[Rfam]
RNA sequence: AUAGAAUAUGGGAAUGAAGUUCUCCCAUGGUGAAAAACCGGAACUGCUUUCAAAAGAGCUGAUGACUUCUGCGGUUUU
Numbered sequence: 001a002u003a004g005a006a007u008a009u010g011g012g013a014a015u016g017a018a019g020u021u022c023u024c025c026c027a028u029g030g031u032g033a034a035a036a037a038c039c040g041g042a043a044c045u046g047c048u049u050u051c052a053a054a055a056g057a058g059c060u061g062a063u064g065a066c067u068u069c070u071g072c073g074g075u076u077u078u
Stems, first nucleotide, its partner, number of pairs: 010026004016069006046059004